[Rfam]
The record is a 59-nucleotide RNA sequence from Alkalinema sp. CACIAM 70d, which matches "Nitrogen stress-induced RNA 1" in Rfam. The family's RNA type in Rfam is small RNA.
RNA sequence: UGGUAGAUGCACCCUGACAAAUUUGACCUCCCAAGCUCCCGGCCUGGGAGGUUUUUUAU
Numbered sequence: 001u002g003g004u005a006g007a008u009g010c011a012c013c014c015u016g017a018c019a020a021a022u023u024u025g026a027c028c029u030c031c032c033a034a035g036c037u038c039c040c041g042g043c044c045u046g047g048g049a050g051g052u053u054u055u056u057u058a059u
Base pairs, nucleotide, nucleotide: 002013003012004011027051028050029049030048031047032046033045035043036042037041